[Rfam]
RNA sequence: UUCUUUGAGUGGUCGCGGUGUAUUUCGCUGAGGAAAGUCCAUACUCACACAAGCUGAGAUGCUUGUAGUGUUCAACGCUAAACGAAAAAAUAAGUUUAGGCACCAUUAGGUGACGGCAGAAAGUAUAACCUAAGUACAUGUAUAUGGUUAUACAUCUUGAAAGUGCCACAGUGACGAAGUUCUUAUAGAAAUAUAAGAAGUGGAACGAGGUAAACCCCUUGAGUGAGCAAUUCAAAUUUUGGUAGAAGCACUUAUUCCGCAGAAUUGAAUGUAGGAAUAGGAAAUAUGUAUAUAUUUAGACAGAUGAUCACAGCUAUUUUUACGAGAGUAGACUAGUCUUGUUUGAGUAAGAAUAGAUACAGAAUAUGGCUUAUGAUA
Numbered sequence: 001u002u003c004u005u006u007g008a009g010u011g012g013u014c015g016c017g018g019u020g021u022a023u024u025u026c027g028c029u030g031a032g033g034a035a036a037g038u039c040c041a042u043a044c045u046c047a048c049a050c051a052a053g054c055u056g057a058g059a060u061g062c063u064u065g066u067a068g069u070g071u072u073c074a075a076c077g078c079u080a081a082a083c084g085a086a087a088a089a090a091u092a093a094g095u096u097u098a099g100g101c102a103c104c105a106u107u108a109g110g111u112g113a114c115g116g117c118a119g120a121a122a123g124u125a126u127a128a129c130c131u132a133a134g135u136a137c138a139u140g141u142a143u144a145u146g147g148u149u150a151u152a153c154a155u156c157u158u159g160a161a162a163g164u165g166c167c168a169c170a171g172u173g174a175c176g177a178a179g180u181u182c183u184u185a186u187a188g189a190a191a192u193a194u195a196a197g198a199a200g201u202g203g204a205a206c207g208a209g210g211u212a213a214a215c216c217c218c219u220u221g222a223g224u225g226a227g228c229a230a231u232u233c234a235a236a237u238u239u240u241g242g243u244a245g246a247a248g249c250a251c252u253u254a255u256u257c258c259g260c261a262g263a264a265u266u267g268a269a270u271g272u273a274g275g276a277a278u279a280g281g282a283a284a285u286a287u288g289u290a291u292a293u294a295u296u297u298a299g300a301c302a303g304a305u306g307a308u309c310a311c312a313g314c315u316a317u318u319u320u321u322a323c324g325a326g327a328g329u330a331g332a333c334u335a336g337u338c339u340u341g342u343u344u345g346a347g348u349a350a351g352a353a354u355a356g357a358u359a360c361a362g363a364a365u366a367u368g369g370c371u372u373a374u375g376a377u378a
Stems, first nucleotide, its partner, number of pairs: 004378001006376001007374001009311006016030005035372003039369005044227005049066006072222004077218001078099006100114001101112004115217002118157003127149004134143003163215002165211003180199008231247003251281007282297006314356009

Shown here is a 378-nucleotide RNA sequence from Gemella morbillorum, a member of the family "Bacterial RNase P class B". Pairs were carried over by alignment from the consensus structure, which is taken from published work.